The family of this 44-nucleotide RNA from Methylobacterium terrae is "ctRNA". The family's RNA type in Rfam is antisense RNA.

RNA sequence: AGAAGGGCUUCCGGGGCGUCGCGUCGGGGGCCUUUUUCUUUUGC
Numbered sequence: 001a002g003a004a005g006g007g008c009u010u011c012c013g014g015g016g017c018g019u020c021g022c023g024u025c026g027g028g029g030g031c032c033u034u035u036u037u038c039u040u041u042u043g044c
Base pairs, nucleotide, nucleotide: 005033006032007031008030009029010028011027012026015025016024017023018022
For this family Rfam cites "Two discrete elements are required for the replication of a repABC plasmid: an antisense RNA and a stem-loop structure" (Venkova-Canova et al., Mol Microbiol, 2004).